[Rfam]
RNA sequence: CGAUCGAAAGGGCACCCCGGUCGUGAGGCCGGCUCGCAAUGCCUGGGGUCUCGCCGGGGGCGAGACGGCCCGGCUGCCGAA
Numbered sequence: 001c002g003a004u005c006g007a008a009a010g011g012g013c014a015c016c017c018c019g020g021u022c023g024u025g026a027g028g029c030c031g032g033c034u035c036g037c038a039a040u041g042c043c044u045g046g047g048g049u050c051u052c053g054c055c056g057g058g059g060g061c062g063a064g065a066c067g068g069c070c071c072g073g074c075u076g077c078c079g080a081a
Stems, first nucleotide, its partner, number of pairs: 012037002017032006041074003045071003048066007

The record is an 81-nucleotide RNA sequence from Gemmatirosa kalamazoonensis, which matches "c-di-GMP-I riboswitch aptamer" in Rfam. It scores 48 bits against the family's covariance model. Its family is annotated with cyclic-di-GMP binding in the Gene Ontology.